[Rfam]
RNA sequence: GGCUGGUCCGAAGGUACUGAGUUAUCUUGAUUAUUCACAGUCAGUUAAAUAUCGAACUCUGUUUCUCCUGUUUUCCCCCCUCUCACUCCUGCACUUGACUAGUCUUAA
Numbered sequence: 001g002g003c004u005g006g007u008c009c010g011a012a013g014g015u016a017c018u019g020a021g022u023u024a025u026c027u028u029g030a031u032u033a034u035u036c037a038c039a040g041u042c043a044g045u046u047a048a049a050u051a052u053c054g055a056a057c058u059c060u061g062u063u064u065c066u067c068c069u070g071u072u073u074u075c076c077c078c079c080c081u082c083u084c085a086c087u088c089c090u091g092c093a094c095u096u097g098a099c100u101a102g103u104c105u106u107a108a
Base pairs, nucleotide, nucleotide: 001104002103003102004101005100006099007098008097010096011095014092015091016087018085019084020083021082040069043066044065